This 200-nucleotide RNA sequence from Halopseudomonas xinjiangensis belongs to the Rfam family "RgsA sRNA". Taxonomically the source falls in Halopseudomonas (Bacteria, Pseudomonadati, Gammaproteobacteria, Pseudomonadales). A search with the family's covariance model found it, with a score of 102 bits. Pairs were carried over by alignment from the consensus structure, which was predicted with RNAalifold.
[Rfam]
RNA sequence: UAAGCGGCACCGGAAAGUAUUCCAAAUCAGUUUAUAAAUGGCGAGAAAUCGACUGGAAAGCUCCGCAUCGUCGACGAUACUGAAAGUCAUCAGGAUGCGGUGUCUCCCCCAAGUUCCGCGUCCUGUCCAGACGGGCCUGCAACCCCGUCUGUGCAACACUCCUAAUGGUCUUGACCCGAAUUCAUUCCCCCAGAAUUCGG
Numbered sequence: 001u002a003a004g005c006g007g008c009a010c011c012g013g014a015a016a017g018u019a020u021u022c023c024a025a026a027u028c029a030g031u032u033u034a035u036a037a038a039u040g041g042c043g044a045g046a047a048a049u050c051g052a053c054u055g056g057a058a059a060g061c062u063c064c065g066c067a068u069c070g071u072c073g074a075c076g077a078u079a080c081u082g083a084a085a086g087u088c089a090u091c092a093g094g095a096u097g098c099g100g101u102g103u104c105u106c107c108c109c110c111a112a113g114u115u116c117c118g119c120g121u122c123c124u125g126u127c128c129a130g131a132c133g134g135g136c137c138u139g140c141a142a143c144c145c146c147g148u149c150u151g152u153g154c155a156a157c158a159c160u161c162c163u164a165a166u167g168g169u170c171u172u173g174a175c176c177c178g179a180a181u182u183c184a185u186u187c188c189c190c191c192a193g194a195a196u197u198c199g200g
Stems, first nucleotide, its partner, number of pairs: 040170003044166001091125004096120002099117001102114002128151007176200004181195003

It is annotated as a small RNA.